[Rfam]
RNA sequence: ACACGAGGAAGGAGGUGGUCUGGAAGUGAAUGAUAUUCGGACGCGUGAGGUGGCUACCCGCUAGCUGCUUGCCGACGACGGAAUUCACCGACCGCGUGCGGCUGGCGAAUCCCAGGUAGUCACCCGGCCCCCGAGUUCCCGGUCCGUCCGAUCGGGACCGCCGAGAUGCGAAAGAGAUCCGUCCGGCGGUGCGGCUCGGGGGCUGUCCGCG
Numbered sequence: 001a002c003a004c005g006a007g008g009a010a011g012g013a014g015g016u017g018g019u020c021u022g023g024a025a026g027u028g029a030a031u032g033a034u035a036u037u038c039g040g041a042c043g044c045g046u047g048a049g050g051u052g053g054c055u056a057c058c059c060g061c062u063a064g065c066u067g068c069u070u071g072c073c074g075a076c077g078a079c080g081g082a083a084u085u086c087a088c089c090g091a092c093c094g095c096g097u098g099c100g101g102c103u104g105g106c107g108a109a110u111c112c113c114a115g116g117u118a119g120u121c122a123c124c125c126g127g128c129c130c131c132c133g134a135g136u137u138c139c140c141g142g143u144c145c146g147u148c149c150g151a152u153c154g155g156g157a158c159c160g161c162c163g164a165g166a167u168g169c170g171a172a173a174g175a176g177a178u179c180c181g182u183c184c185g186g187c188g189g190u191g192c193g194g195c196u197c198g199g200g201g202g203c204u205g206u207c208c209g210c211g
Stems, first nucleotide, its partner, number of pairs: 014058006059107007067099002070096001073094001125205013138156006
Dot-bracket structure: .............((((((.................................))))))(((((((.((.(..(....................).).)).))))))).................(((((((((((((((((((.......))))))....................................)))))))))))))......
RNA: Actinobacteria sRNA Ms_IGR-5